[Rfam]
RNA sequence: UUUUUGGUGUAAGUAUGUUCCAUGCACUAUUUGGGAUAUACUUAUACUAAGA
Numbered sequence: 001u002u003u004u005u006g007g008u009g010u011a012a013g014u015a016u017g018u019u020c021c022a023u024g025c026a027c028u029a030u031u032u033g034g035g036a037u038a039u040a041c042u043u044a045u046a047c048u049a050a051g052a
Base pairs, nucleotide, nucleotide: 006048007047008046009045010044011043012042014040015039016038018036019035020034021033022031

mir-1302 microRNA precursor family: a 52-nucleotide RNA from Pan paniscus. The literature on the family includes a 2008 paper in Genome Res by Morin et al., "Application of massively parallel sequencing to microRNA profiling and discovery in human embryonic stem cells". Rfam links the family to the GO terms RISC complex and miRNA-mediated post-transcriptional gene silencing.